[Rfam]
RNA sequence: UAUCGUUACAAGUUCCCGAAAGGAUUUGCUGAGAAGAUGAGUUGUCUAUACUCAGAUUUUUAGACAAAGAUGCCUUGUAACCGAAUAUUGAUUAGGGGGAAUACAUUAUUAUG
Numbered sequence: 001u002a003u004c005g006u007u008a009c010a011a012g013u014u015c016c017c018g019a020a021a022g023g024a025u026u027u028g029c030u031g032a033g034a035a036g037a038u039g040a041g042u043u044g045u046c047u048a049u050a051c052u053c054a055g056a057u058u059u060u061u062a063g064a065c066a067a068a069g070a071u072g073c074c075u076u077g078u079a080a081c082c083g084a085a086u087a088u089u090g091a092u093u094a095g096g097g098g099g100a101a102u103a104c105a106u107u108a109u110u111a112u113g
Stems, first nucleotide, its partner, number of pairs: 013101005020076004025068004081096002
About this RNA: This 113-nucleotide sequence from Candidatus Enterococcus clewellii belongs to the Rfam family "SAM-III riboswitch aptamer (SMK box)". The source organism's lineage runs through Bacteria, Bacillati, Bacillota, Bacilli and Enterococcus. Its family is annotated with methionine adenosyltransferase activity and regulation of translational initiation in the Gene Ontology. It scores 65 bits against the family's covariance model.